[Rfam]
RNA sequence: UUUGACACAAAGUCAAAGACUUAUGCGGAAACAAACCGCGUAGCCAGGAGAACUGGCAUUGGACUCCUAAGAAGGAGAAAACAAAUG
Numbered sequence: 001u002u003u004g005a006c007a008c009a010a011a012g013u014c015a016a017a018g019a020c021u022u023a024u025g026c027g028g029a030a031a032c033a034a035a036c037c038g039c040g041u042a043g044c045c046a047g048g049a050g051a052a053c054u055g056g057c058a059u060u061g062g063a064c065u066c067c068u069a070a071g072a073a074g075g076a077g078a079a080a081a082c083a084a085a086u087g
Stems, first nucleotide, its partner, number of pairs: 001017006022042007043057004
freshwater-2 RNA: an 87-nucleotide sequence. Pairs were carried over by alignment from the consensus structure, which is taken from published work.